[Rfam]
Rfam assigns this 358-nucleotide sequence from Halorubrum trapanicum to the family "Archaeal RNase P". Lineage of the source: Archaea > Methanobacteriati > Halobacteria > Halobacteriales > Halorubrum. Rfam describes the family as follows. Ribonuclease P (RNase P) is a ubiquitous endoribonuclease, found in archaea, bacteria and eukarya as well as chloroplasts and mitochondria. Its best characterised activity is the generation of mature 5'-ends of tRNAs by cleaving the 5'-leader elements of precursor-tRNAs. Cellular RNase Ps are ribonucleoproteins. RNA from bacterial RNase Ps retains its catalytic activity in the absence of the protein subunit, i.e. it is a ribozyme. By type it is a ribozyme. On this family, see Brown, Nucleic Acids Res 1999: "The Ribonuclease P Database". Rfam's curators put it in the seed alignment. The family is grouped with related families in Rfam's "RNaseP clan".
RNA sequence: GGCAGAGAGAGCCCGGCCACCGCGGCGUGCCAGCAGCACGCAGCUGCCAGCGGGCACGCACGCGAGGAAAGUCCCCCCACCGCCGGGCAGGUGACCGGGGAAACCCCGGGACGGGAGACCGUCGGCGCUGGAACAGCAACGAGACCGCUCCCCCGCGAGUGGAUGACGUGGCGCGAACCGACCCGCGAGGGAAGGGAGCUAACCCACAGAACGCAGACCGGGGGAGAACGGAUGGAACGGCGAACCCUCACCGGUGCAAGUCCACGCCACGCGGCGCGAGCCGCACGGUAGCCCGGCAGGGACGUGGACGCUCAGCCGAAUGCCGGGACGAACAGAAGGGGGCUUACUCCUCUCAGCC
Numbered sequence: 001g002g003c004a005g006a007g008a009g010a011g012c013c014c015g016g017c018c019a020c021c022g023c024g025g026c027g028u029g030c031c032a033g034c035a036g037c038a039c040g041c042a043g044c045u046g047c048c049a050g051c052g053g054g055c056a057c058g059c060a061c062g063c064g065a066g067g068a069a070a071g072u073c074c075c076c077c078c079a080c081c082g083c084c085g086g087g088c089a090g091g092u093g094a095c096c097g098g099g100g101a102a103a104c105c106c107c108g109g110g111a112c113g114g115g116a117g118a119c120c121g122u123c124g125g126c127g128c129u130g131g132a133a134c135a136g137c138a139a140c141g142a143g144a145c146c147g148c149u150c151c152c153c154c155g156c157g158a159g160u161g162g163a164u165g166a167c168g169u170g171g172c173g174c175g176a177a178c179c180g181a182c183c184c185g186c187g188a189g190g191g192a193a194g195g196g197a198g199c200u201a202a203c204c205c206a207c208a209g210a211a212c213g214c215a216g217a218c219c220g221g222g223g224g225a226g227a228a229c230g231g232a233u234g235g236a237a238c239g240g241c242g243a244a245c246c247c248u249c250a251c252c253g254g255u256g257c258a259a260g261u262c263c264a265c266g267c268c269a270c271g272c273g274g275c276g277c278g279a280g281c282c283g284c285a286c287g288g289u290a291g292c293c294c295g296g297c298a299g300g301g302a303c304g305u306g307g308a309c310g311c312u313c314a315g316c317c318g319a320a321u322g323c324c325g326g327g328a329c330g331a332a333c334a335g336a337a338g339g340g341g342g343c344u345u346a347c348u349c350c351u352c353u354c355a356g357c358c
Stems, first nucleotide, its partner, number of pairs: 001358003005354005010348002012327006021064004069345003073342005078256004085284001087282001090252005095109005110123005124247002129243001131241001145231003148226008168199002260309007267301002